The record is an 84-nucleotide RNA sequence from Ruegeria sp. ANG-S4, which matches "tRNA" in Rfam.
From the family's description: Transfer RNA (tRNA) molecules are approximately 80 nucleotides in length.
Lineage of the source: Bacteria > Pseudomonadati > Pseudomonadota > Alphaproteobacteria > Ruegeria.
RNA sequence: GCGGUCGUGGCGGAAUUGGUAGACGCGCAGCGUUGAGGUCGCUGUGGGGUAACACCCGUGAGAGUUCGAGUCUCUCCGUCCGCA
Numbered sequence: 001g002c003g004g005u006c007g008u009g010g011c012g013g014a015a016u017u018g019g020u021a022g023a024c025g026c027g028c029a030g031c032g033u034u035g036a037g038g039u040c041g042c043u044g045u046g047g048g049g050u051a052a053c054a055c056c057c058g059u060g061a062g063a064g065u066u067c068g069a070g071u072c073u074c075u076c077c078g079u080c081c082g083c084a
Base pairs, nucleotide, nucleotide: 001083002082003081004080006078007077010026011025012024028044029043030042031041032040060076061075062074063073064072
Pairs were carried over by alignment from the consensus structure, which is taken from published work. Its family is annotated with triplet codon-amino acid adaptor activity in the Gene Ontology. It is annotated as a transfer RNA.